[Rfam]
RNA sequence: AGGCAGCCUCCUUGUGAUCACCAUGGCAAUGGGGGUGUUGAACUGCUCGCAUAUUAAACAUGGCUUUUGCUCUUCAGACUUGCUGAGAUUAUUCCUUGAAGCUGGUCUAGUAAGCCUAAGCACAUU
Numbered sequence: 001a002g003g004c005a006g007c008c009u010c011c012u013u014g015u016g017a018u019c020a021c022c023a024u025g026g027c028a029a030u031g032g033g034g035g036u037g038u039u040g041a042a043c044u045g046c047u048c049g050c051a052u053a054u055u056a057a058a059c060a061u062g063g064c065u066u067u068u069g070c071u072c073u074u075c076a077g078a079c080u081u082g083c084u085g086a087g088a089u090u091a092u093u094c095c096u097u098g099a100a101g102c103u104g105g106u107c108u109a110g111u112a113a114g115c116c117u118a119a120g121c122a123c124a125u126u
Base pairs, nucleotide, nucleotide: 002039003038004037005036007035008034009032010031012029013028014027015026017024064120065119066118069115070114071113076108077107078106079105080104082102083101084100087094088093
Notes:
The record is a 126-nucleotide RNA sequence from Durio zibethinus, which matches "Small nucleolar RNA snoR77" in Rfam. The family's RNA type in Rfam is H/ACA-box small nucleolar RNA. It scores 106 bits against the family's covariance model. The base pairs follow the family's consensus structure, which was predicted with WAR. Rfam 15.1 lists 649 matches to the family in 221 species. Gene Ontology terms of the family: nucleolus and RNA processing.